[Rfam]
RNA sequence: GUGUGCCUGGCUCCCUGUAUGCCAUUUGUCAGAACCUAUCGAAUCACCGAUGGCCUCCGCGAAUGGCGUAUGAGGAGCCAAGCAUAU
Numbered sequence: 001g002u003g004u005g006c007c008u009g010g011c012u013c014c015c016u017g018u019a020u021g022c023c024a025u026u027u028g029u030c031a032g033a034a035c036c037u038a039u040c041g042a043a044u045c046a047c048c049g050a051u052g053g054c055c056u057c058c059g060c061g062a063a064u065g066g067c068g069u070a071u072g073a074g075g076a077g078c079c080a081a082g083c084a085u086a087u
Stems, first nucleotide, its partner, number of pairs: 001087006008080007016072009027061003

Background
The record is an 87-nucleotide RNA from Hibiscus syriacus, which matches "mir-160 microRNA precursor family" in Rfam. NCBI's taxonomy places the organism under Eukaryota, Spermatophyta, Pentapetalae, Malvales, Hibiscus. On this family, see Rhoades et al., Cell 2002: "Prediction of plant microRNA targets".